[Rfam]
RNA: mir-399 microRNA precursor family
RNA sequence: UGGUGAAUUACAGAGCGAUUCUCCUUUGGCAUGCAGACAAUGCCUAUGCAUGAUUACUGUCAUGCCAAAGGAGACUUGCCCUGCCAUUUACCA
Number, nucleotide and partner (000 for none) at each position: 001u000002g000003g000004u000005g089006a088007a087008u086009u000010a000011c083012a082013g081014a000015g079016c078017g077018a076019u000020u000021c073022u072023c071024c070025u000026u000027u067028g066029g065030c064031a063032u062033g061034c000035a000036g000037a000038c000039a000040a000041u000042g000043c000044c000045u000046a000047u000048g000049c000050a000051u000052g000053a000054u000055u000056a000057c000058u000059g000060u000061c033062a032063u031064g030065c029066c028067a027068a000069a000070g024071g023072a022073g021074a000075c000076u018077u017078g016079c015080c000081c013082u012083g011084c000085c000086a008087u007088u006089u005090a000091c000092c000093a000